A member of the RNA family "Bacterial small signal recognition particle RNA" from Halobacteriovorax marinus, 99 nucleotides long.
[Rfam]
RNA sequence: AGUCUAACCCACGGCAAUUGUAUUCAUGGUGAACUCCGCCAGGUCGGGAACGAAGCAACGGUAACUUUUGGUAUGAUGUGUCGUUGGGGUAGGCUGCCA
Numbered sequence: 001a002g003u004c005u006a007a008c009c010c011a012c013g014g015c016a017a018u019u020g021u022a023u024u025c026a027u028g029g030u031g032a033a034c035u036c037c038g039c040c041a042g043g044u045c046g047g048g049a050a051c052g053a054a055g056c057a058a059c060g061g062u063a064a065c066u067u068u069u070g071g072u073a074u075g076a077u078g079u080g081u082c083g084u085u086g087g088g089g090u091a092g093g094c095u096g097c098c099a
Base pairs, nucleotide, nucleotide: 004093005092007090008089009086011084012083013082014081015078017077018076019075020074021073022072026068028066029065030064036061037060038059044053045052046051

Rfam classes the family as a non-coding RNA gene.
A search with the family's covariance model found it, with a score of 51 bits.
Its Rfam clan is "SRP clan".
Lineage of the source: Bacteria > Bdellovibrionota > Bacteriovoracales > Halobacteriovorax > Halobacteriovorax marinus.